[Rfam]
RNA sequence: GCGGCAGAGUCGGGGUGCGGCGCAGCCGCUGAGAUGAUACCCGUGAACCUGAUACGGUCAGUACCGGCGUAGGAAACUCAACUGCCGCGCAG
Numbered sequence: 001g002c003g004g005c006a007g008a009g010u011c012g013g014g015g016u017g018c019g020g021c022g023c024a025g026c027c028g029c030u031g032a033g034a035u036g037a038u039a040c041c042c043g044u045g046a047a048c049c050u051g052a053u054a055c056g057g058u059c060a061g062u063a064c065c066g067g068c069g070u071a072g073g074a075a076a077c078u079c080a081a082c083u084g085c086c087g088c089g090c091a092g
Stems, first nucleotide, its partner, number of pairs: 007079004011043004016037001017029005048073004055066003
This 92-nucleotide RNA from Neisseria chenwenguii belongs to the Rfam family "TPP riboswitch aptamer (THI element)".
The base pairs follow the family's consensus structure, which is taken from published work.
The source organism's lineage runs through Bacteria, Pseudomonadati, Pseudomonadota, Betaproteobacteria and Neisseria.
Gene Ontology term of the family: thiamine pyrophosphate binding.
The match comes from Rfam's covariance-model search (57 bits).